[Rfam]
Nucleotides: 307
Stems, first nucleotide, its partner, number of pairs: 001108003005102007013093002018090002024087010035074002037070003042067004046062003116161002118158002121155001122139004127135002141154002187251003193245002195242006207232004272307003276302001278300003281295005
Number, partner (000 for none) and nucleotide at each position: 001108g002107g003106a004000u005102g006101u007100g008099a009098g010097g011096g012000c013093g014092a015000u016000c017000u018090g019089g020000c021000u022000g023000c024087g025086a026085c027084a028083u029082c030081u031080g032079u033078c034000a035074c036073c037070c038069c039068a040000u041000u042067g043066a044065u045064c046062g047061c048060u049000a050000g051000g052000g053000u054000u055000g056000a057000u058000u059000c060048g061047g062046c063000u064045g065044a066043u067042c068039u069038g070037g071000c072000u073036g074035g075000c076000u077000a078033g079032g080031c081030g082029g083028g084027u085026g086025u087024c088000c089019c090018c091000u092014u093013c094000c095000u096011c097010c098009c099008u100007c101006a102005c103000c104000g105000c106003u107002c108001c109000a110000u111000g112000u113000g114000u115000g116161u117160c118158c119157c120000u121155c122139c123138c124137g125136a126000c127135g128134c129000u130000c131000c132000g133000c134128g135127c136125u137124c138123g139122g140000u141154g142153g143000a144000a145000g146000a147000g148000u149000c150000c151000c152000c153142c154141c155121g156000c157119g158118g159000c160117g161116g162000a163000c164000g165000a166000c167000c168000a169000u170000u171000c172000a173000u174000c175000g176000g177000u178000a179000u180000a181000c182000c183000a184000g185000u186000a187251g188250c189249u190000g191000c192000g193245c194244u195242c196241c197240c198239u199238g200237c201000u202000a203000g204000a205000a206000c207232c208231u209230c210229c211000a212000a213000a214000c215000a216000a217000g218000c219000u220000c221000a222000a223000g224000g225000c226000c227000u228000a229210g230209g231208a232207g233000a234000a235000a236000c237200g238199u239198a240197g241196g242195g243000a244194a245193g246000u247000c248000a249189a250188g251187c252000u253000c254000c255000a256000u257000g258000c259000u260000u261000c262000a263000g264000a265000c266000a267000c268000a269000u270000c271000c272307a273306a274305a275000u276302g277000u278300g279299g280298c281295a282294c283293u284292g285291c286000a287000c288000g289000u290000g291285g292284c293283a294282g295281u296000c297000u298280g299279c300278c301000u302276u303000a304000g305274u306273u307272u
About this RNA: The family of this 307-nucleotide RNA sequence from Parambassis ranga is "7SK RNA". The family has 45 seed sequences and 49,373 matches in Rfam 15.1. Rfam describes the family as follows. 7SK was discovered as an abundant small nuclear RNA in the mid-70s but a possible function has only recently been suggested. Two independent studies have found that 7SK RNA binds the CDK9/cyclin T complex (known as elongation factor P-TEFb). P-TEFb activates transcription by phosphorylating the C-terminal domain of RNA polymerase II. This process is negatively regulated by the 7SK RNP. The secondary structure of 7SK RNA shown here was proposed by Wasserman and Steitz on the basis of chemical modification and enzymatic cleavage experiments. The family's consensus secondary structure is taken from published work.